RNA sequence: AGCCUCAUUCUUAAUGAGAACGGCACUGUUGGUCAUAUUGUCCAGAAAUUGUUCAUGGGACUAAAUUGAGACACAAGUUCUGCUUACAUCACAGUAAAUUUAUUGAAAUGGUGAUAAUGAGACUGUUAACCUUU
Dot-bracket structure: .(.(.(((.............((((.............))).)...........))).).)...........(..((.........(((((.................))))).........))..).......
RNA: Small nucleolar RNA SNORA1